[Rfam]
RNA sequence: GCAGCACACCCGACCACUACGGAUCGUCCGGCACGUACCUGCCGGUGGAGGGAAUCAUCA
Numbered sequence: 001g002c003a004g005c006a007c008a009c010c011c012g013a014c015c016a017c018u019a020c021g022g023a024u025c026g027u028c029c030g031g032c033a034c035g036u037a038c039c040u041g042c043c044g045g046u047g048g049a050g051g052g053a054a055u056c057a058u059c060a
Stems, first nucleotide, its partner, number of pairs: 010052002014048003028045006
RNA: msiK RNA
Organism: Isoptericola dokdonensis